Record summary:
Shown here is a 108-nucleotide RNA, a member of the family "Small nucleolar RNA Z118/Z121/Z120".
[Rfam]
RNA sequence: UGUUUGCUGUGAUGAUUCCUACAUGGACGGUAUCUUAGUAAGGAACCACUUGAAAAGGUGGUCCUCACGUGAUUACAUCCAAAACUGAUCAGAGAUUCUGAGCAAACA
Numbered sequence: 001u002g003u004u005u006g007c008u009g010u011g012a013u014g015a016u017u018c019c020u021a022c023a024u025g026g027a028c029g030g031u032a033u034c035u036u037a038g039u040a041a042g043g044a045a046c047c048a049c050u051u052g053a054a055a056a057g058g059u060g061g062u063c064c065u066c067a068c069g070u071g072a073u074u075a076c077a078u079c080c081a082a083a084a085c086u087g088a089u090c091a092g093a094g095a096u097u098c099u100g101a102g103c104a105a106a107c108a
Stems, first nucleotide, its partner, number of pairs: 001108007038068002041065003

Rfam links the family to the GO terms RNA processing and nucleolus. The sequence is in the family's curated seed alignment. The base pairs follow the family's consensus structure, which was predicted with PFOLD.